[Rfam]
RNA sequence: UAUAAAUGCAGAUAGAGAUAUGCUGUAUACCUGCGUAACCGAAUUAACGUUUAAGCGACAUGUAAUGUCGUCGGCCGCAGGGACCGCCGAGAGGCGGUUUUUUUGUUAC
Numbered sequence: 001u002a003u004a005a006a007u008g009c010a011g012a013u014a015g016a017g018a019u020a021u022g023c024u025g026u027a028u029a030c031c032u033g034c035g036u037a038a039c040c041g042a043a044u045u046a047a048c049g050u051u052u053a054a055g056c057g058a059c060a061u062g063u064a065a066u067g068u069c070g071u072c073g074g075c076c077g078c079a080g081g082g083a084c085c086g087c088c089g090a091g092a093g094g095c096g097g098u099u100u101u102u103u104u105g106u107u108a109c
Base pairs, nucleotide, nucleotide: 007027008026009025010024011023012021013020014019030081031080032079033078034077035076039074040073041072042051043050044049055071056070057069058068059067060066082099083098084097085096086095087094088093
RNA: DUF3800-I RNA
Organism: Enterocloster bolteae